[Rfam]
RNA sequence: GUUCCAGCUCGGAUAUCAUUAUAUACUGUAAGUUGGAAUCAGACACUACAGUAUAGAUGAUGUACUAUCUGGAGCUC
Numbered sequence: 001g002u003u004c005c006a007g008c009u010c011g012g013a014u015a016u017c018a019u020u021a022u023a024u025a026c027u028g029u030a031a032g033u034u035g036g037a038a039u040c041a042g043a044c045a046c047u048a049c050a051g052u053a054u055a056g057a058u059g060a061u062g063u064a065c066u067a068u069c070u071g072g073a074g075c076u077c
Stems, first nucleotide, its partner, number of pairs: 007069001011065001013063008022055009032044003
Rfam assigns this 77-nucleotide RNA from Laticauda laticaudata to the family "mir-144 microRNA precursor family". Rfam links the family to the GO terms miRNA-mediated post-transcriptional gene silencing and RISC complex. It scores 76 bits against the family's covariance model. A reference for the family is Xu et al. (2006), "Identification of microRNAs from different tissues of chicken embryo and adult chicken", FEBS Lett.